[Rfam]
RNA sequence: GAUAGGUCUCUGUCGUUCCAGUGAUUGGACACUGACACAGAGUCAACUAGCCUUGGUCGCGCGGCGCGACCGGGGGGUCGUGCGGCAGGCCGACGGCCCGGUCCGAGCCACGAGGGGGGAGGCUCGGACCGGGGCCG
Numbered sequence: 001g002a003u004a005g006g007u008c009u010c011u012g013u014c015g016u017u018c019c020a021g022u023g024a025u026u027g028g029a030c031a032c033u034g035a036c037a038c039a040g041a042g043u044c045a046a047c048u049a050g051c052c053u054u055g056g057u058c059g060c061g062c063g064g065c066g067c068g069a070c071c072g073g074g075g076g077g078u079c080g081u082g083c084g085g086c087a088g089g090c091c092g093a094c095g096g097c098c099c100g101g102u103c104c105g106a107g108c109c110a111c112g113a114g115g116g117g118g119g120a121g122g123c124u125c126g127g128a129c130c131g132g133g134g135c136c137g
Base pairs, nucleotide, nucleotide: 001014002013003012004011005010015051016050017049021032022031023030033045034044035043036042097133098132099131100130101129102128103127104126105125106124107123108122109121111118
RNA: Streptomyces RNA 3920
Organism: Streptomyces sp. UH6